[Rfam]
RNA: Group II catalytic intron D1-D4-5
RNA sequence: GAGAACUAACAAUCCAAGAGGUGGAAUGAUGGGAUAACGCCCUGAAACGCCCCCUUAAUACUCCGACUGGCGGGUGUAAGUGAAAACUGACCUGUCAGAAGCUCGGUGAAGUCGGCUGAGAGUAGCCGUAUGGAUUGCUGGAUAAUUACCAGCCCCACGAAAGCUGUCCAGAGGUGGACGGUGCUACCUAUAGGCCGGAGGUCUACAAA
Numbered sequence: 001g002a003g004a005a006c007u008a009a010c011a012a013u014c015c016a017a018g019a020g021g022u023g024g025a026a027u028g029a030u031g032g033g034a035u036a037a038c039g040c041c042c043u044g045a046a047a048c049g050c051c052c053c054c055u056u057a058a059u060a061c062u063c064c065g066a067c068u069g070g071c072g073g074g075u076g077u078a079a080g081u082g083a084a085a086a087c088u089g090a091c092c093u094g095u096c097a098g099a100a101g102c103u104c105g106g107u108g109a110a111g112u113c114g115g116c117u118g119a120g121a122g123u124a125g126c127c128g129u130a131u132g133g134a135u136u137g138c139u140g141g142a143u144a145a146u147u148a149c150c151a152g153c154c155c156c157a158c159g160a161a162a163g164c165u166g167u168c169c170a171g172a173g174g175u176g177g178a179c180g181g182u183g184c185u186a187c188c189u190a191u192a193g194g195c196c197g198g199a200g201g202u203c204u205a206c207a208a209a
Base pairs, nucleotide, nucleotide: 018053020051021050022049023048031043032042033041054201055200056199063106064105065104066103067098068097069096070095071094072093073092074091075090076087077086113197114196115195116194117193122187123186124185125184126183127159128158129157140155141154163182164181165180166179167178168177169176170175